[Rfam]
RNA: Small nucleolar RNA snR191
RNA sequence: CCCCAGGGGUUUUGUCAGGAUGCUUCCGCACAUUCGUGUGCCAGUGCAAUGGAAGUUGUGCGUUACAUCCCUGGGAGAUCGAUAUCCACCUCCAACUUCUCUGGCCUGGUCAUCAGGUCGGGGAUUGUCAGACUCCGUCUUGGGGUUUUGGCGCCGGAUACCGGACGUGUUUCAUACGAGUUGAAAACCGCCGCGCCCUUCACUGGGUAAUUUUGUUGCGGUUUUCUUAGUGAUGUUUCAUACAUUU
Number, nucleotide and partner (000 for none) at each position: 001c000002c000003c074004c073005a072006g071007g070008g000009g000010u000011u000012u000013u000014g000015u000016c000017a000018g061019g000020a059021u058022g057023c055024u054025u053026c052027c051028g000029c040030a039031c038032a000033u000034u000035c000036g000037u000038g031039u030040g029041c000042c000043a000044g000045u000046g000047c000048a000049a000050u000051g027052g026053a025054a024055g023056u000057u022058g021059u020060g000061c018062g000063u000064u000065a000066c000067a000068u000069c000070c007071c006072u005073g004074g003075g000076a000077g000078a000079u000080c000081g000082a000083u000084a000085u165086c164087c000088a000089c000090c163091u000092c000093c127094a126095a125096c000097u123098u122099c121100u120101c000102u000103g119104g118105c117106c116107u115108g114109g000110u000111c000112a000113u000114c108115a107116g106117g105118u104119c103120g100121g099122g098123g097124a000125u095126u094127g093128u000129c000130a000131g147132a146133c145134u144135c143136c142137g141138u000139c000140u000141u137142g136143g135144g134145g133146u132147u131148u000149u000150g000151g000152c000153g000154c000155c000156g000157g000158a000159u000160a000161c000162c000163g090164g086165a085166c000167g241168u240169g239170u000171u000172u000173c235174a234175u233176a000177c000178g000179a000180g000181u000182u000183g226184a225185a224186a223187a000188c221189c220190g219191c218192c000193g000194c000195g208196c207197c206198c205199u000200u000201c000202a000203c000204u000205g198206g197207g196208u195209a000210a000211u000212u000213u000214u000215g000216u000217u000218g191219c190220g189221g188222u000223u186224u185225u184226c183227u000228u000229a000230g000231u000232g000233a175234u174235g173236u000237u000238u000239c169240a168241u167242a000243c000244a000245u000246u000247u000